Purine riboswitch aptamer: a 98-nucleotide RNA from Paenibacillus catalpae.
The source organism's lineage runs through Bacteria, Bacillati, Bacillota, Paenibacillaceae and Paenibacillus.
A search with the family's covariance model found it, with a score of 67 bits.
Rfam links the family to the GO term purine nucleobase biosynthetic process.
RNA sequence: ACAAUAGAUACUAAUAUUGCGUAUAACCUCGGCAAUACGGGUCGAGGGUUUCUACCGGGAACCGUAAACUCCCGAUUACCAGCAUGCUUAUUUCAGCA
Numbered sequence: 001a002c003a004a005u006a007g008a009u010a011c012u013a014a015u016a017u018u019g020c021g022u023a024u025a026a027c028c029u030c031g032g033c034a035a036u037a038c039g040g041g042u043c044g045a046g047g048g049u050u051u052c053u054a055c056c057g058g059g060a061a062c063c064g065u066a067a068a069c070u071c072c073c074g075a076u077u078a079c080c081a082g083c084a085u086g087c088u089u090a091u092u093u094c095a096g097c098a
Stems, first nucleotide, its partner, number of pairs: 018084003021079003027047007056074005